Shown here is a 97-nucleotide RNA sequence from Alligator sinensis, a member of the family "Mammalian CPEB3 ribozyme". The mammalian CPEB3 ribozyme is a self cleaving RNA located in the second intron of the CPEB3 gene which belongs to a family of genes regulating messenger RNA polyadenylation. This ribozyme is highly conserved and found only in mammals. The CPEB3 ribozyme is structurally and biochemically related to the human hepatitis delta virus (HDV) ribozyme and the HDV ribozyme is proposed to have arisen from the human transcriptome.
[Rfam]
RNA sequence: GGUAUUGAGCAUGGGGCCAUAGCAGAAGCGUUCGCGGCACAACCUGUCAGGUAAUACCUGGUAGUACUUGGACCUGGCAGUACCUGUGAAAUCUGCU
Numbered sequence: 001g002g003u004a005u006u007g008a009g010c011a012u013g014g015g016g017c018c019a020u021a022g023c024a025g026a027a028g029c030g031u032u033c034g035c036g037g038c039a040c041a042a043c044c045u046g047u048c049a050g051g052u053a054a055u056a057c058c059u060g061g062u063a064g065u066a067c068u069u070g071g072a073c074c075u076g077g078c079a080g081u082a083c084c085u086g087u088g089a090a091a092u093c094u095g096c097u
Base pairs, nucleotide, nucleotide: 013044014043015040016038017037018036021097022096023095024094025093026092028035029034048086049085050084051083052082053081